RNA sequence: UAGACGCGUCGGGGGAGUCUCGCCUGAGAGACUGAGAGGCUAAUAGCGCACUGCGCGGCUUAGCGACCCUUUGAACCUGACCCAGUUGAUGCUGGCGUAGGAAGACUGACGGCUCAUGUG
Numbered sequence: 001u002a003g004a005c006g007c008g009u010c011g012g013g014g015g016a017g018u019c020u021c022g023c024c025u026g027a028g029a030g031a032c033u034g035a036g037a038g039g040c041u042a043a044u045a046g047c048g049c050a051c052u053g054c055g056c057g058g059c060u061u062a063g064c065g066a067c068c069c070u071u072u073g074a075a076c077c078u079g080a081c082c083c084a085g086u087u088g089a090u091g092c093u094g095g096c097g098u099a100g101g102a103a104g105a106c107u108g109a110c111g112g113c114u115c116a117u118g119u120g
Stems, first nucleotide, its partner, number of pairs: 008106003011070004017032005039064005076101004082095004
A member of the RNA family "TPP riboswitch aptamer (THI element)" from a Plautia stali symbiont, 120 nucleotides long. The match comes from Rfam's covariance-model search (61 bits). NCBI's taxonomy places the organism under Bacteria, Pseudomonadati, Gammaproteobacteria, Enterobacterales, Enterobacteriaceae. Vitamin B(1) in its active form thiamin pyrophosphate (TPP) is an essential coenzyme that is synthesised by coupling of pyrimidine and thiazole moieties in bacteria.